The family of this 101-nucleotide RNA sequence from Oribacterium sp. C9 is "THF (Tetrahydrofolate) riboswitch aptamer". From the family's description: Tetrahydrofolate (THF) riboswitch was first reported for Ames et al. as an RNA motif in 5' untranslated (5'-UTR)regions of folate transport and biosynthesis genes in Firmicutes genomes. The organism belongs to Oribacterium, within Bacteria. The family has 101 seed sequences and 747 matches in Rfam 15.1.
RNA sequence: AGCAGAGUAGACGCUCGAGCGUAUAGUGCCUUCCGAACGGGGAGUUUGUCGGAGGGACGAAACCUUUUUCAGGUGCGGUUCGGUCGUCGCAUCCCGCUGCA
Numbered sequence: 001a002g003c004a005g006a007g008u009a010g011a012c013g014c015u016c017g018a019g020c021g022u023a024u025a026g027u028g029c030c031u032u033c034c035g036a037a038c039g040g041g042g043a044g045u046u047u048g049u050c051g052g053a054g055g056g057a058c059g060a061a062a063c064c065u066u067u068u069u070c071a072g073g074u075g076c077g078g079u080u081c082g083g084u085c086g087u088c089g090c091a092u093c094c095c096g097c098u099g100c101a
Base pairs, nucleotide, nucleotide: 002100003099004098005097010088011087012086013085015083016082017081018080019079020077021076022075026058027057029056030055031054032053033052034051035050036049040094041093042092044090062074063073064072065071